Notes: Shown here is a 115-nucleotide sequence from Halalkalibacter okhensis, a member of the family "PyrR binding site". Rfam links the family to the GO terms pyrimidine nucleobase biosynthetic process and pyrimidine nucleobase transport. Rfam's curators write: This family represents the PyrR binding site and terminator structure. This RNA structure is found upstream of a variety of genes involved in pyrimidine biosynthesis and transport. The alignment also includes a portion of the antiterminator structure. It scores 63 bits against the family's covariance model.
RNA sequence: CACCUCUUUAAAUUAGUCCUGUGAGGCUAAAAAGAGGGUCAACAUACUAUUGCACAUUUAUUGUGGAUAGGAUUUUGAACCUCUUUGUAUACAACACACAAAGAGGUUUUUGUCU
Number, nucleotide and partner (000 for none) at each position: 001c000002a000003c037004c036005u035006c034007u033008u032009u031010a000011a000012a000013u030014u029015a028016g027017u026018c025019c000020u000021g000022u000023g000024a000025g018026g017027c016028u015029a014030a013031a009032a008033a007034g006035a005036g004037g003038g000039u000040c000041a000042a000043c000044a073045u072046a000047c070048u069049a068050u067051u066052g000053c065054a064055c063056a062057u000058u000059u000060a000061u000062u056063g055064u054065g053066g051067a050068u049069a048070g047071g000072a045073u044074u000075u000076u000077g109078a108079a107080c106081c105082u104083c103084u102085u101086u100087g099088u098089a000090u000091a000092c000093a000094a000095c000096a000097c000098a088099c087100a086101a085102a084103g083104a082105g081106g080107u079108u078109u077110u000111u000112g000113u000114c000115u000